[Rfam]
RNA sequence: CCCGCCACUAAGCCCGUCUGACCGGUGACGGAGUUUAAUCCAGUGGAGGCUCAGAUGGACCCAGCUUUAGGAAACAGAGCUGCUCAGAUCAGUGGACAACUCUGUGCCAAAAGUCUGGAACAUUC
Numbered sequence: 001c002c003c004g005c006c007a008c009u010a011a012g013c014c015c016g017u018c019u020g021a022c023c024g025g026u027g028a029c030g031g032a033g034u035u036u037a038a039u040c041c042a043g044u045g046g047a048g049g050c051u052c053a054g055a056u057g058g059a060c061c062c063a064g065c066u067u068u069a070g071g072a073a074a075c076a077g078a079g080c081u082g083c084u085c086a087g088a089u090c091a092g093u094g095g096a097c098a099a100c101u102c103u104g105u106g107c108c109a110a111a112a113g114u115c116u117g118g119a120a121c122a123u124u125c
Stems, first nucleotide, its partner, number of pairs: 005046005018033002023030002061118004065113004070108002075104005084095002
The family of this 125-nucleotide RNA sequence from Scophthalmus maximus is "Small nucleolar RNA SNORA65". Its family is annotated with RNA processing and nucleolus in the Gene Ontology. Lineage of the source: Eukaryota > Gnathostomata > Euteleosteomorpha > Acanthomorphata > Scophthalmus. U65 belongs to the H/ACA class of snoRNAs which are thought to guide the sites of modification of uridines to pseudouridines. Rfam 15.1 lists 1,089 matches to the family in 619 species. The family is grouped with related families in Rfam's "SNORA65 clan".